The record is a 586-nucleotide part of an RNA from Prauserella flavalba, which matches "Bacterial large subunit ribosomal RNA" in Rfam. The base pairs follow the family's consensus structure, which is taken from published work.
Nucleotides: 586
Base pairs, nucleotide, nucleotide: 001582002581003580004579005578006577007576008575010574011573012572014569015568022403023402024401025400026399027398028395029394030393031392032391034200035199036198037197041192042191044189045188046187047186050153051152052151053150054149055148056147057146058145059144061142062141063140064139065138067136077135078134079133080132081131084118085117086116093112094111095110096109097108098107099106100105157180158179159178161177162176163175164174165173166172203215204214205213206212216238217237218236219235220234221233239384241341242340247299248298249297250296251295252294253279254278256274257273258272259271260270261269280289281288304327305326306325307324310321311320312319329338330337331336352378353377354376355375356374357373358372360371361370412453413452414451416450417447418446420444421443422442423441427437428436464539465537466536467535468534469531470528471527472526473525474524477502478501480497481496482495483494484493485492504518505517506516507515508514545563546562547561548560549558550557551556
Number, partner (000 for none) and nucleotide at each position: 001582c002581g003580c004579g005578c006577g007576g008575c009000a010574g011573g012572a013000c014569g015568g016000a017000a018000a019000g020000a021000c022403c023402c024401c025400g026399g027398g028395a029394c030393c031392u032391u033000u034200a035199c036198u037197a038000u039000a040000g041192c042191u043000u044189g045188g046187u047186a048000u049000u050153g051152g052151u053150u054149u055148u056147c057146g058145g059144u060000u061142c062141g063140g064139c065138u066000u067136g068000u069000g070000u071000a072000g073000g074000a075000u076000a077135g078134g079133u080132g081131g082000g083000a084118g085117a086116c087000u088000g089000u090000g091000a092000a093112g094111c095110u096109g097108g098107c099106a100105c101000g102000c103000u104000a105100g106099u107098g108097u109096u110095g111094g112093u113000g114000g115000a116086g117085u118084c119000g120000u121000u122000g123000u124000u125000g126000a127000a128000a129000u130000a131081c132080c133079a134078c135077u136067c137000u138065g139064g140063u141062c142061g143000u144059g145058c146057u147056g148055g149054g150053a151052a152051u153050c154000u155000a156000a157180c158179u159178u160000c161177g162176g163175a164174c165173c166172g167000u168000g169000a170000u171000c172166c173165g174164g175163u176162u177161c178159a179158g180157g181000g182000a183000c184000a185000g186047u187046g188045c189044c190000u191042g192041g193000u194000g195000g196000g197037u198036a199035g200034u201000u202000u203215a204214a205213c206212u207000g208000g209000g210000g211000c212206g213205g214204u215203u216238g217237c218236c219235u220234c221233c222000u223000a224000a225000a226000g227000g228000g229000u230000a231000a232000c233221g234220g235219a236218g237217g238216c239384g240000c241341c242340c243000a244000a245000a246000g247299g248298u249297u250296c251295c252294c253279u254278c255000a256274g257273c258272c259271u260270g261269g262000u263000u264000g265000g266000c267000a268000a269261u270260c271259a272258g273257g274256u275000g276000u277000u278254g279253a280289g281288u282000g283000u284000a285000a286000g287000u288281g289280c290000a291000c292000a293000a294252g295251g296250g297249a298248g299247c300000u301000u302000g303000a304327c305326u306325g307324u308000g309000a310321g311320a312319c313000u314000g315000a316000c317000g318000g319312g320311u321310c322000g323000a324307g325306c326305a327304g328000g329338u330337a331336c332000g333000a334000a335000a336331g337330u338329a339000g340242g341241g342000a343000c344000u345000a346000g347000u348000g349000a350000u351000c352378c353377g354376g355375c356374a357373c358372c359000u360371c361370c362000u363000g364000g365000u366000g367000g368000a369000a370361g371360g372358g373357g374356u375355g376354u377353c378352g379000c380000u381000c382000a383000a384239c385000g386000g387000a388000u389000a390000a391032a392031a393030g394029g395028u396000a397000c398027c399026c400025c401024g402023g403022g404000g405000a406000u407000a408000a409000c410000a411000g412453g413452c414451u415000g416450a417447u418446c419000u420444u421443g422442c423441c424000c425000a426000a427437g428436a429000g430000u431000c432000c433000a434000u435000a436428u437427c438000g439000a440000c441423g442422g443421c444420a445000u446418g447417g448000u449000u450416u451414g452413g453412c454000a455000c456000c457000u458000c459000g460000a461000u462000g463000u464539c465537g466536g467535c468534u469531c470528g471527u472526c473525g474524c475000a476000u477502c478501c479000u480497g481496g482495g483494g484493c485492c486000g487000g488000a489000g490000u491000a492485g493484g494483u495482c496481c497480c498000a499000a500000g501478g502477g503000u504518u505517g506516g507515g508514c509000u510000g511000u512000u513000c514508g515507c516506c517505c518504a519000u520000u521000a522000a523000a524474g525473c526472g527471g528470c529000a530000c531469g532000c533000g534468a535467g536466c537465u538000g539464g540000g541000u542000u543000u544000a545563g546562a547561a548560c549558g550557u551556c552000g553000u554000g555000a556551g557550a558549c559000a560548g561547u562546u563545c564000g565000g566000u567000c568015c569014c570000u571000a572012u573011c574010c575008g576007c577006c578005g579004c580003g581002c582001g583000c584000g585000u586000a